[Rfam]
RNA sequence: UCCUCGUCCGACAAAUCGCCAUCGAAGCUCACAAACAGAGACGCCCCAAAACGUCUCGGGCUCUUUGUAGCCCAGCAGCUUUGGGAGAAAGUCCCCGGACACACGUUACUUCUUCCUUUCGGGGUUGAAGGCAAAACGCCGCGGAAACGCGCCGCCAUAGAAGCACAGCGGCUGACCUCCAAGACCUGCGUCCGGACACAAUGGCUCUCCCCCUCCGCCCUGCCCCGUCGCUACAUCGUCGCGGUUCCUCUGCACCCUUCUCGAAGCCCCGUCCCCUCGUUCCGAGACCCCAUGGAUGAAGAUAUGAGUCCGCGCUUGGGAUCUGAGGGUGGUGUGCUUUGGAUGGGACGAGAGGGCUCUUCGGUGACGGGGUGGCCGCGUGGGGAGGUCGCUUGCCGGGUGAAUUCAAGGGUCGGUCGGAGGAGUCUUUCGUCGAGAUCGAUAGUUAUGCGAUUGCUCGUCCCUUCACGGGGGCGGGAUUACUCGAUGGGGCUUAUUCUCGGCGCGAGG
Number, nucleotide and partner (000 for none) at each position: 001u000002c510003c509004u508005c507006g506007u505008c503009c502010g501011a500012c000013a000014a455015a454016u453017c452018g451019c450020c000021a000022u085023c083024g082025a081026a080027g079028c078029u000030c000031a000032c000033a000034a000035a000036c000037a000038g057039a056040g055041a054042c053043g052044c000045c000046c000047c000048a000049a000050a000051a000052c043053g042054u041055c040056u039057c038058g000059g000060g000061c000062u000063c000064u000065u000066u000067g000068u000069a000070g000071c000072c000073c000074a000075g000076c000077a000078g028079c027080u026081u025082u024083g023084g000085g022086a000087g000088a000089a495090a494091g493092u000093c492094c491095c490096c489097g000098g000099a000100c000101a000102c000103a000104c000105g000106u000107u000108a000109c000110u000111u000112c000113u000114u000115c000116c000117u000118u000119u000120c000121g000122g000123g000124g000125u000126u000127g000128a000129a000130g000131g000132c000133a000134a000135a000136a000137c000138g000139c000140c151141g150142c149143g000144g000145a000146a000147a000148c000149g142150c141151g140152c000153c000154g000155c000156c000157a000158u000159a000160g000161a000162a000163g000164c000165a000166c000167a000168g000169c000170g000171g000172c000173u000174g000175a000176c000177c000178u000179c000180c000181a000182a000183g000184a000185c000186c000187u000188g000189c000190g000191u000192c000193c000194g000195g000196a000197c000198a000199c000200a000201a000202u000203g000204g000205c000206u000207c000208u000209c000210c000211c000212c000213c000214u000215c000216c000217g000218c000219c000220c000221u000222g000223c000224c000225c000226c000227g000228u000229c000230g000231c000232u000233a000234c000235a000236u000237c000238g000239u000240c000241g000242c000243g000244g000245u000246u000247c000248c000249u000250c000251u000252g000253c000254a000255c000256c000257c000258u000259u000260c000261u000262c000263g000264a000265a000266g427267c000268c425269c000270c000271g000272u000273c423274c422275c000276c420277u419278c000279g000280u000281u000282c416283c415284g414285a413286g000287a000288c000289c000290c000291c000292a000293u000294g407295g406296a405297u404298g000299a000300a000301g000302a000303u000304a000305u000306g000307a000308g000309u000310c000311c000312g000313c000314g000315c000316u000317u000318g000319g000320g000321a000322u000323c000324u000325g000326a000327g000328g000329g000330u000331g000332g000333u000334g000335u000336g000337c000338u000339u000340u000341g000342g000343a000344u000345g000346g000347g000348a000349c000350g000351a000352g000353a000354g000355g000356g000357c000358u000359c000360u000361u000362c000363g000364g000365u000366g000367a000368c000369g000370g000371g000372g000373u000374g000375g000376c000377c000378g000379c000380g000381u000382g000383g000384g000385g000386a000387g000388g000389u000390c400391g000392c398393u000394u000395g000396c000397c000398g392399g000400g390401u000402g000403a000404a297405u296406u295407c294408a000409a000410g000411g000412g000413u285414c284415g283416g282417u000418c000419g277420g276421a000422g274423g273424a000425g268426u000427c266428u000429u000430u000431c000432g000433u000434c000435g000436a000437g000438a000439u000440c000441g000442a000443u000444a000445g000446u000447u000448a000449u000450g019451c018452g017453a016454u015455u014456g000457c478458u477459c476460g475461u474462c473463c472464c471465u000466u000467c000468a000469c000470g000471g464472g463473g462474g461475c460476g459477g458478g457479a000480u000481u000482a000483c000484u000485c000486g000487a000488u000489g096490g095491g094492g093493c091494u090495u089496a000497u000498u000499c000500u011501c010502g009503g008504c000505g007506c006507g005508a004509g003510g002

This 510-nucleotide sequence from Colletotrichum fructicola belongs to the Rfam family "RNase MRP". RNase MRP is an enzymatically active ribonucleoprotein with two distinct roles in eukaryotes. NCBI's taxonomy places the organism under Eukaryota, sordariomyceta, Hypocreomycetidae, Glomerellaceae, Colletotrichum fructicola. Clan: RNaseP clan.